[Rfam]
RNA sequence: UCCCCCAAGGAGCGUUGCAGCGGGCCGUCCACCGGCCCGUCAGGCUUGGGGCCGUCCCCCGUUCGCAACGACGCUCACCUGUC
Numbered sequence: 001u002c003c004c005c006c007a008a009g010g011a012g013c014g015u016u017g018c019a020g021c022g023g024g025c026c027g028u029c030c031a032c033c034g035g036c037c038c039g040u041c042a043g044g045c046u047u048g049g050g051g052c053c054g055u056c057c058c059c060c061g062u063u064c065g066c067a068a069c070g071a072c073g074c075u076c077a078c079c080u081g082u083c
Base pairs, nucleotide, nucleotide: 003051004050005049006048007047008046021039022038023037024036025035026034
RNA: SAH (S-adenosyl-L-homocysteine) riboswitch aptamer